Annotation:
NiCo (Nickel/Cobalt) riboswitch aptamer: a 90-nucleotide RNA sequence from Clostridium sp. chh4-2. Lineage of the source: Bacteria > Bacillati > Bacillota > Clostridiaceae > Clostridium. The literature on the family includes a 2015 paper in Mol Cell by Furukawa et al., "Bacterial riboswitches cooperatively bind Ni(2+) or Co(2+) ions and control expression of heavy metal transporters". The match comes from Rfam's covariance-model search (77 bits). Clan: NiCo_riboswitches.

RNA sequence: ACAGUACAAACUGAGCAGGCGAUGGAUGAGAUCCAUAGGGCCGGGUUGCCAUAGGCGACAACAGAUGAAGACAGCAUCUGUGGGACAGUA
Numbered sequence: 001a002c003a004g005u006a007c008a009a010a011c012u013g014a015g016c017a018g019g020c021g022a023u024g025g026a027u028g029a030g031a032u033c034c035a036u037a038g039g040g041c042c043g044g045g046u047u048g049c050c051a052u053a054g055g056c057g058a059c060a061a062c063a064g065a066u067g068a069a070g071a072c073a074g075c076a077u078c079u080g081u082g083g084g085a086c087a088g089u090a
Stems, first nucleotide, its partner, number of pairs: 010089004016084001018042003022036006045059005061081006